[Rfam]
RNA sequence: UACUACCAAACCCUAUCUCCACCUUCACGUGGUGAUCGCUGGGAGUUCAUUCUUUAUGGAAAACUACAGACGGAGAAGG
Numbered sequence: 001u002a003c004u005a006c007c008a009a010a011c012c013c014u015a016u017c018u019c020c021a022c023c024u025u026c027a028c029g030u031g032g033u034g035a036u037c038g039c040u041g042g043g044a045g046u047u048c049a050u051u052c053u054u055u056a057u058g059g060a061a062a063a064c065u066a067c068a069g070a071c072g073g074a075g076a077a078g079g
Stems, first nucleotide, its partner, number of pairs: 012079003016075001018073002021033003044065002046060005

Shown here is a 79-nucleotide RNA from Hermetia illucens, a member of the family "drz-agam-1 ribozyme".
NCBI's taxonomy places the organism under Eukaryota, Opisthokonta, Endopterygota, Brachycera, Hermetia.
A reference for the family is Webb et al. (2009), "Widespread occurrence of self-cleaving ribozymes", Science.
Rfam links the family to the GO term catalytic activity.
Pairs were carried over by alignment from the consensus structure, which is taken from published work.
The match comes from Rfam's covariance-model search (37 bits).